[Rfam]
RNA sequence: CCCCGGUUCACCCCCCCCCGAAACCGGGUGAUGACGGUCCGCGCCACACCCCCCCCGAGACGCGGACCGUCCUUU
Numbered sequence: 001c002c003c004c005g006g007u008u009c010a011c012c013c014c015c016c017c018c019c020g021a022a023a024c025c026g027g028g029u030g031a032u033g034a035c036g037g038u039c040c041g042c043g044c045c046a047c048a049c050c051c052c053c054c055c056c057g058a059g060a061c062g063c064g065g066a067c068c069g070u071c072c073u074u075u
Base pairs, nucleotide, nucleotide: 002028003027004026005025006024007023008022033071034070035069036068037067038066039065040064041063042062043061045059
The record is a 75-nucleotide RNA sequence from Corynebacterium durum, which matches "6C RNA" in Rfam. The match comes from Rfam's covariance-model search (48 bits). NCBI's taxonomy places the organism under Bacteria, Actinomycetota, Mycobacteriales, Corynebacterium, Corynebacterium durum. Gene Ontology term of the family: sporulation. It is annotated as a cis-regulatory element. On this family, see Weinberg et al., Nucleic Acids Res 2007: "Identification of 22 candidate structured RNAs in bacteria using the CMfinder comparative genomics pipeline".